[Rfam]
A member of the RNA family "c-di-GMP-I riboswitch aptamer" from Paenibacillus foliorum, 87 nucleotides long. A search with the family's covariance model found it, with a score of 74 bits.
RNA sequence: AUAGGAAAAUAGCAAACCUAAUCGAAAGAUAGGGACGCAAAGCCACGGGUCUUCUGCAGAAACUGCAAUGAUAGCCGGGUUACCCUU
Numbered sequence: 001a002u003a004g005g006a007a008a009a010u011a012g013c014a015a016a017c018c019u020a021a022u023c024g025a026a027a028g029a030u031a032g033g034g035a036c037g038c039a040a041a042g043c044c045a046c047g048g049g050u051c052u053u054c055u056g057c058a059g060a061a062a063c064u065g066c067a068a069u070g071a072u073a074g075c076c077g078g079g080u081u082a083c084c085c086u087u
Base pairs, nucleotide, nucleotide: 012038013037017033018032019031020030022029023028041081042080043079044078046077047076048075049072050071051070056066057065058064059063
Gene Ontology term of the family: cyclic-di-GMP binding. Taxonomically the source falls in Paenibacillus (Bacteria, Bacillota, Caryophanales, Paenibacillaceae).